[Rfam]
Shown here is a 213-nucleotide sequence from Coffea canephora, a member of the family "MIR159 microRNA precursor family".
RNA sequence: UUAUGGAGGAAGGAGCUCUCUCCAGUCCAGUCCGAGGCAGUCUGAGGGCUGAUGAAUCAGCUGCUGACUCAUUGGUUCACGAAUUCAUCAACCAAAUUAAUGUUUAUGGAAAUUGCAAAGGGAGAUGAUGUUUUUGUGAUACAAUGAUGCAGGAGCUGUUUUCAGUUUUUGCUGUCGCGUCUUGGACUGAAGGGAGCUCCCUUUCAUUCCACU
Dot-bracket structure: ............((((((((..(((((((......(........................((.(((...((((....((((((.................................................))))))....))))...))).))....................)......)))))))..))))))))..............
Numbered sequence: 001u002u003a004u005g006g007a008g009g010a011a012g013g014a015g016c017u018c019u020c021u022c023c024a025g026u027c028c029a030g031u032c033c034g035a036g037g038c039a040g041u042c043u044g045a046g047g048g049c050u051g052a053u054g055a056a057u058c059a060g061c062u063g064c065u066g067a068c069u070c071a072u073u074g075g076u077u078c079a080c081g082a083a084u085u086c087a088u089c090a091a092c093c094a095a096a097u098u099a100a101u102g103u104u105u106a107u108g109g110a111a112a113u114u115g116c117a118a119a120g121g122g123a124g125a126u127g128a129u130g131u132u133u134u135u136g137u138g139a140u141a142c143a144a145u146g147a148u149g150c151a152g153g154a155g156c157u158g159u160u161u162u163c164a165g166u167u168u169u170u171g172c173u174g175u176c177g178c179g180u181c182u183u184g185g186a187c188u189g190a191a192g193g194g195a196g197c198u199c200c201c202u203u204u205c206a207u208u209c210c211a212c213u
Stems, first nucleotide, its partner, number of pairs: 013199008023189007036176001061155002064152003070146004078138006
A search with the family's covariance model found it, with a score of 111 bits. Rfam 15.1 lists 3,649 matches to the family in 242 species. The literature on the family includes a 2006 paper in Genes Dev by Rajagopalan et al., "A diverse and evolutionarily fluid set of microRNAs in Arabidopsis thaliana". NCBI's taxonomy places the organism under Eukaryota, Tracheophyta, asterids, lamiids, Coffea.